RNA sequence: CCGCAGCAUCAAGAGUCGGGCCGACGCCCGGCACCAACCUGCCUUCCCGGCAAGGUGGUGUCUCCGCUUCCAGCGGAGGGAUGUGGCCGAUCCGGCAACCAACGGGAUGAAG
Numbered sequence: 001c002c003g004c005a006g007c008a009u010c011a012a013g014a015g016u017c018g019g020g021c022c023g024a025c026g027c028c029c030g031g032c033a034c035c036a037a038c039c040u041g042c043c044u045u046c047c048c049g050g051c052a053a054g055g056u057g058g059u060g061u062c063u064c065c066g067c068u069u070c071c072a073g074c075g076g077a078g079g080g081a082u083g084u085g086g087c088c089g090a091u092c093c094g095g096c097a098a099c100c101a102a103c104g105g106g107a108u109g110a111a112g
Stems, first nucleotide, its partner, number of pairs: 006084005015032001017030005033059003038055003041051003047106002086096004
Rfam assigns this 112-nucleotide RNA from Sphingomonas sp. JC676 to the family "SAM-I/IV (S-adenosyl methionine) riboswitch aptamer". Clan: SAM clan. A reference for the family is Weinberg et al. (2008), "The aptamer core of SAM-IV riboswitches mimics the ligand-binding site of SAM-I riboswitches", RNA.